[Rfam]
Notes: Rfam assigns this 130-nucleotide RNA from Jaculus jaculus to the family "Small nucleolar RNA SNORA15". Gene Ontology terms of the family: nucleolus and RNA processing. By type it is an H/ACA-box small nucleolar RNA. It scores 54 bits against the family's covariance model. Rfam describes the family as follows. ACA15 is a member of the H/ACA class of snoRNA that guide the sites of modification of uridines to pseudouridines. Lineage of the source: Eukaryota > Metazoa > Eumetazoa > Vertebrata > Jaculus.
Nucleotides: 130
Stems, first nucleotide, its partner, number of pairs: 001048006014035002056123002059119007074106005079100005
Number, partner (000 for none) and nucleotide at each position: 001048g002047u003046g004045u005044g006043g007000c008000u009000g010000a011000a012000a013000a014035c015034u016000a017000c018000u019000c020000u021000g022000a023000a024000u025000a026000a027000u028000u029000u030000a031000c032000a033000c034015a035014g036000c037000c038000a039000g040000a041000c042000a043006c044005c045004a046003u047002g048001c049000a050000a051000a052000a053000g054000u055000u056123u057122u058000c059119c060118u061117u062116u063115u064114a065113a066000a067000a068000u069000g070000a071000a072000c073000u074106a075105u076104g077103g078102u079100a080099u081098a082097c083096u084000u085000g086000g087000c088000u089000u090000u091000u092000u093000a094000a095000u096083a097082g098081u099080a100079u101000u102078a103077u104076c105075a106074u107000c108000a109000u110000u111000a112000a113065u114064u115063a116062a117061a118060a119059g120000c121000a122057a123056g124000u125000g126000c127000a128000a129000g130000c